[Rfam]
RNA sequence: AUAAUGAUACUUCUGAAAUUUUAUAAAAAUUCAGUCAUGAAAUGACGGUGAAAUUCCGAUGU
Number, nucleotide and partner (000 for none) at each position: 001a000002u000003a000004a000005u000006g000007a000008u000009a000010c000011u000012u059013c034014u033015g032016a031017a000018a000019u000020u000021u000022u000023a000024u000025a000026a000027a000028a000029a000030u000031u016032c015033a014034g013035u045036c044037a043038u000039g000040a000041a000042a000043u037044g036045a035046c058047g057048g056049u000050g000051a000052a000053a000054u000055u000056c048057c047058g046059a012060u000061g000062u000
pemK RNA: a 62-nucleotide RNA sequence from Lachnospiraceae bacterium A4. The source organism's lineage runs through Bacteria, Bacillati, Bacillota, Lachnospirales and Lachnospiraceae. The base pairs follow the family's consensus structure, which is taken from published work. The match comes from Rfam's covariance-model search (47 bits). Rfam classes the family as a cis-regulatory element.